[Rfam]
RNA sequence: CUGUCUUUUUCUUUGGUUAUCUAGCUGUAUGAGUGCAUUUGACGUCAUAAAGCUAGGUUACCAAAGCUAAGAACAA
Numbered sequence: 001c002u003g004u005c006u007u008u009u010u011c012u013u014u015g016g017u018u019a020u021c022u023a024g025c026u027g028u029a030u031g032a033g034u035g036c037a038u039u040u041g042a043c044g045u046c047a048u049a050a051a052g053c054u055a056g057g058u059u060a061c062c063a064a065a066g067c068u069a070a071g072a073a074c075a076a
Stems, first nucleotide, its partner, number of pairs: 002075003007070002011066007019058008028049005
RNA: mir-9/mir-79 microRNA precursor family